Group II catalytic intron D1-D4-3: a 165-nucleotide RNA sequence from Bowmanella dokdonensis. The pairing is the family consensus, mapped onto this sequence. It scores 129 bits against the family's covariance model.
RNA sequence: CAACCUGCGAGGGACGGUCUGGAGGAAGCCGCUAGCAAAUUUGCGAGCUGAUGAACAAGAACAUCCUAUGAGGCGUAGGCUGAAGGUGAGUUGGCACAAGACAACGAAACCGCGUGAUCUGACGGCCACCGUAAAGGAUGCAGCAGUGCAAAGAAAGUGCAUGUC
Numbered sequence: 001c002a003a004c005c006u007g008c009g010a011g012g013g014a015c016g017g018u019c020u021g022g023a024g025g026a027a028g029c030c031g032c033u034a035g036c037a038a039a040u041u042u043g044c045g046a047g048c049u050g051a052u053g054a055a056c057a058a059g060a061a062c063a064u065c066c067u068a069u070g071a072g073g074c075g076u077a078g079g080c081u082g083a084a085g086g087u088g089a090g091u092u093g094g095c096a097c098a099a100g101a102c103a104a105c106g107a108a109a110c111c112g113c114g115u116g117a118u119c120u121g122a123c124g125g126c127c128a129c130c131g132u133a134a135a136g137g138a139u140g141c142a143g144c145a146g147u148g149c150a151a152a153g154a155a156a157g158u159g160c161a162u163g164u165c
Stems, first nucleotide, its partner, number of pairs: 001016001004013003028165001030163002035158002040152006047144004062140006073132003078127005085111003090105004